[Rfam]
Nucleotides: 118
Base pairs, nucleotide, nucleotide: 002051003050004049005048006047007046008045009044014040015039016038017037019035021032054112056110057109059107060106067097068096069095070094071093072092073091075089076088077087079086080085
Number, partner (000 for none) and nucleotide at each position: 001000a002051u003050g004049c005048c006047c007046u008045u009044u010000c011000a012000a013000g014040g015039u016038u017037g018000a019035u020000g021032c022000a023000c024000u025000g026000c027000u028000u029000u030000a031000a032021g033000a034000g035019a036000c037017u038016a039015a040014c041000a042000c043000a044009g045008a046007a047006g048005g049004g050003u051002a052000a053000a054112g055000u056110c057109u058000c059107c060106a061000u062000a063000a064000a065000a066000c067097c068096c069095a070094a071093a072092g073091a074000a075089g076088a077087g078000a079086u080085u081000g082000u083000a084000a085080a086079a087077u088076u089075c090000c091073u092072c093071u094070u095069u096068g097067g098000a099000u100000c101000c102000u103000g104000u105000c106060u107059g108000a109057a110056g111000u112054c113000a114000g115000a116000g117000c118000u
Shown here is a 118-nucleotide RNA from Microcebus murinus, a member of the family "Small nucleolar RNA SNORA26". The snoRNA HBI-6 belong to the H/ACA family of snoRNAs, guiding the pseudouridylation of position U4522 if the 28S rRNA. HBI-6 is the human orthologue of mouse MBI-6 snoRNA. The match comes from Rfam's covariance-model search (121 bits). Gene Ontology terms of the family: RNA processing and nucleolus. Clan: SNORA27 clan.